RNA sequence: UACAGAGUAGAGGUCUGCGCGUUAAGUGCUGAACGAACGGGGAGUUGUCGUUCAGACGAAAAGGGUAAAACCCUUGCGGUGCAGAUCUUGCAUCCCGCUGAA
Numbered sequence: 001u002a003c004a005g006a007g008u009a010g011a012g013g014u015c016u017g018c019g020c021g022u023u024a025a026g027u028g029c030u031g032a033a034c035g036a037a038c039g040g041g042g043a044g045u046u047g048u049c050g051u052u053c054a055g056a057c058g059a060a061a062a063g064g065g066u067a068a069a070a071c072c073c074u075u076g077c078g079g080u081g082c083a084g085a086u087c088u089u090g091c092a093u094c095c096c097g098c099u100g101a102a
Base pairs, nucleotide, nucleotide: 001102003100004099005098010089011088012087013086014085015084016083017082018081019080020078021077022076026057027056029055030054031053032052033051034050035049036048040095041094042093044091061075062074063073064072
Rfam assigns this 102-nucleotide RNA sequence from Ruminococcus sp. CAG:579 to the family "THF (Tetrahydrofolate) riboswitch aptamer".
The base pairs follow the family's consensus structure, which is taken from published work.
It scores 92 bits against the family's covariance model.
The family has 101 seed sequences and 747 matches in Rfam 15.1.
On this family, see Ames et al., Chem Biol 2010: "A eubacterial riboswitch class that senses the coenzyme tetrahydrofolate".
Tetrahydrofolate (THF) riboswitch was first reported for Ames et al. as an RNA motif in 5' untranslated (5'-UTR)regions of folate transport and biosynthesis genes in Firmicutes genomes.